[Rfam]
RNA sequence: GCAGCGAAUGCCACGGGUACUACAUUGGGUCGCGGGUUCGAAUCCCGCCAGCCGCAAGGCUGUAGCUCAGUCGGUAGAGCAAAUGUGCCCGUUAUCUCGUCGCUGCGCG
Dot-bracket structure: .((((((.....(((((((.....((.....(((((..[....)))))(((((....)))))..((((.....]..)))).))..))))))).......))))))....
Numbered sequence: 001g002c003a004g005c006g007a008a009u010g011c012c013a014c015g016g017g018u019a020c021u022a023c024a025u026u027g028g029g030u031c032g033c034g035g036g037u038u039c040g041a042a043u044c045c046c047g048c049c050a051g052c053c054g055c056a057a058g059g060c061u062g063u064a065g066c067u068c069a070g071u072c073g074g075u076a077g078a079g080c081a082a083a084u085g086u087g088c089c090c091g092u093u094a095u096c097u098c099g100u101c102g103c104u105g106c107g108c109g
Stems, first nucleotide, its partner, number of pairs: 002105006013092007025083002032048005039074001049062005065080004
A member of the RNA family "Y RNA-like" from Pseudomonas sp. THAF187a, 109 nucleotides long. A search with the family's covariance model found it, with a score of 78 bits. From the family's description: In Deinococcus radiodurans Rsr is tethered via Y RNA to the exoribonuclease PNPase and channels single-stranded RNA into the PNPase cavity. Rfam classes the family as a small RNA.